The record is a 66-nucleotide RNA sequence from Nesidiocoris tenuis, which matches "mir-71 microRNA precursor family" in Rfam. For this family Rfam cites "Direct sequencing and expression analysis of a large number of miRNAs in Aedes aegypti and a multi-species survey of novel mosquito miRNAs" (Li et al., BMC Genomics, 2009). It scores 52 bits against the family's covariance model.
RNA sequence: ACGGCAUGAAAGACAAGGUAGUGAGAUGCGCUGUGACAUCUCACUACCCAUGUCUUUCAUGCGGGU
Numbered sequence: 001a002c003g004g005c006a007u008g009a010a011a012g013a014c015a016a017g018g019u020a021g022u023g024a025g026a027u028g029c030g031c032u033g034u035g036a037c038a039u040c041u042c043a044c045u046a047c048c049c050a051u052g053u054c055u056u057u058c059a060u061g062c063g064g065g066u
Stems, first nucleotide, its partner, number of pairs: 008058008017048002020045009